[Rfam]
RNA sequence: UGGUCUUGUCUUCAGUCAAACUGUUCUAAGUUUGACCAACUCUAUAGAAAAAAGUAUCAACAUAUACAAUACCAAAUAAACUUUAUACUGAAAAAAAAAUCCUGAUAGAUCUCGUGAUACUAGUUUGGUAGUGUAGAUGUGAAUAUUUUUUCUACAAACUUGGUCAAACUUAAAACAAUUUGACUUAAGAGAAGACUGA
Numbered sequence: 001u002g003g004u005c006u007u008g009u010c011u012u013c014a015g016u017c018a019a020a021c022u023g024u025u026c027u028a029a030g031u032u033u034g035a036c037c038a039a040c041u042c043u044a045u046a047g048a049a050a051a052a053a054g055u056a057u058c059a060a061c062a063u064a065u066a067c068a069a070u071a072c073c074a075a076a077u078a079a080a081c082u083u084u085a086u087a088c089u090g091a092a093a094a095a096a097a098a099a100u101c102c103u104g105a106u107a108g109a110u111c112u113c114g115u116g117a118u119a120c121u122a123g124u125u126u127g128g129u130a131g132u133g134u135a136g137a138u139g140u141g142a143a144u145a146u147u148u149u150u151u152c153u154a155c156a157a158a159c160u161u162g163g164u165c166a167a168a169c170u171u172a173a174a175a176c177a178a179u180u181u182g183a184c185u186u187a188a189g190a191g192a193a194g195a196c197u198g199a
Stems, first nucleotide, its partner, number of pairs: 005194003009190001011188002014185007022177004031168005045154008055145003060140004065135004072128006

Rfam assigns this 199-nucleotide RNA sequence from Triticum aestivum to the family "MIR1435 microRNA precursor family". The base pairs follow the family's consensus structure, which was predicted with RNAalifold.